[Rfam]
RNA sequence: AUCCCAGAUUUACGCCGAAGCCCGGCAACCUUCAUCCCAUAUGGAUAUGGUUGACGGGCCGCGACCCGGACUGAGGAAUCCGCCUCAGCUCUGCAGGUUCGCCGGGUUCGUUGGGAAACUGACGGGCCUCCCGCGCUUGGAAAGGUGUACCCAUGACAUUGCA
Numbered sequence: 001a002u003c004c005c006a007g008a009u010u011u012a013c014g015c016c017g018a019a020g021c022c023c024g025g026c027a028a029c030c031u032u033c034a035u036c037c038c039a040u041a042u043g044g045a046u047a048u049g050g051u052u053g054a055c056g057g058g059c060c061g062c063g064a065c066c067c068g069g070a071c072u073g074a075g076g077a078a079u080c081c082g083c084c085u086c087a088g089c090u091c092u093g094c095a096g097g098u099u100c101g102c103c104g105g106g107u108u109c110g111u112u113g114g115g116a117a118a119c120u121g122a123c124g125g126g127c128c129u130c131c132c133g134c135g136c137u138u139g140g141a142a143a144g145g146u147g148u149a150c151c152c153a154u155g156a157c158a159u160u161g162c163a
Base pairs, nucleotide, nucleotide: 006154011149012148013147014146015145016144020059021058022057023056024055026053027052028051029050030049034046035045036044037043061102062101063100064099104129105128106127107126108125109124110123111122112121113120114119130140131139

This 163-nucleotide sequence from Thalassolituus maritimus belongs to the Rfam family "Molybdenum/Tungsten riboswitch aptamer (Moco RNA motif)". Rfam 15.1 lists 1,248 matches to the family in 836 species. It scores 67 bits against the family's covariance model. Taxonomically the source falls in Thalassolituus (Bacteria, Pseudomonadati, Pseudomonadota, Oceanospirillales).